[Rfam]
RNA sequence: GCUUUGUGAUGAACCCCAUGCAUGUCAUCUGAGGCUGGCUUCCCUGCUAUCUUAGCCCAGGUAGUGUUCUACUUCCCAGGGAUAUUGUCUGGCCUGGCAGAGAGGUCUUGGGCAAAGGAUCAGGCCUUGUAUUCUGAGAGU
Numbered sequence: 001g002c003u004u005u006g007u008g009a010u011g012a013a014c015c016c017c018a019u020g021c022a023u024g025u026c027a028u029c030u031g032a033g034g035c036u037g038g039c040u041u042c043c044c045u046g047c048u049a050u051c052u053u054a055g056c057c058c059a060g061g062u063a064g065u066g067u068u069c070u071a072c073u074u075c076c077c078a079g080g081g082a083u084a085u086u087g088u089c090u091g092g093c094c095u096g097g098c099a100g101a102g103a104g105g106u107c108u109u110g111g112g113c114a115a116a117g118g119a120u121c122a123g124g125c126c127u128u129g130u131a132u133u134c135u136g137a138g139a140g141u
Stems, first nucleotide, its partner, number of pairs: 001141004042102001044100006
The record is a 141-nucleotide RNA sequence from Nannospalax galili, which matches "Small nucleolar RNA SNORD10" in Rfam.
NCBI's taxonomy places the organism under Eukaryota, Bilateria, Deuterostomia, Glires, Nannospalax.
By type it is a C/D-box small nucleolar RNA.
A reference for the family is Huttenhofer et al. (2001), "RNomics: an experimental approach that identifies 201 candidates for novel, small, non-messenger RNAs in mouse", EMBO J.
A search with the family's covariance model found it, with a score of 112 bits.